[Rfam]
RNA sequence: AAACAACCCCUAUGUAUUGAAUCUAUGGCAGUUUUGGCCCCGAAGGCCACAUUUGAUUUGGUCUUCGCUGACGUGGCACCCACAAUGGUCGACACGUGGCACCUCAAUUAAGGGAUGUGGGUGCCAUGUCAGCGAAGACCAAGUCAAAAGUGGCUUUGGGGGCCAAAACUGCCAAAGAUCCAAUACAUAGGGAGUUGUUU
Numbered sequence: 001a002a003a004c005a006a007c008c009c010c011u012a013u014g015u016a017u018u019g020a021a022u023c024u025a026u027g028g029c030a031g032u033u034u035u036g037g038c039c040c041c042g043a044a045g046g047c048c049a050c051a052u053u054u055g056a057u058u059u060g061g062u063c064u065u066c067g068c069u070g071a072c073g074u075g076g077c078a079c080c081c082a083c084a085a086u087g088g089u090c091g092a093c094a095c096g097u098g099g100c101a102c103c104u105c106a107a108u109u110a111a112g113g114g115a116u117g118u119g120g121g122u123g124c125c126a127u128g129u130c131a132g133c134g135a136a137g138a139c140c141a142a143g144u145c146a147a148a149a150g151u152g153g154c155u156u157u158g159g160g161g162g163c164c165a166a167a168a169c170u171g172c173c174a175a176a177g178a179u180c181c182a183a184u185a186c187a188u189a190g191g192g193a194g195u196u197g198u199u200u
Stems, first nucleotide, its partner, number of pairs: 001200002004197004011189009021179004026174016043157002071129002074126008
A member of the RNA family "MIR2619 microRNA precursor family" from Medicago truncatula, 200 nucleotides long. The base pairs follow the family's consensus structure, which was predicted with RNAalifold. The source organism's lineage runs through Eukaryota, Embryophyta, eudicotyledons, Papilionoideae and Medicago. Gene Ontology terms of the family: miRNA-mediated post-transcriptional gene silencing and RISC complex.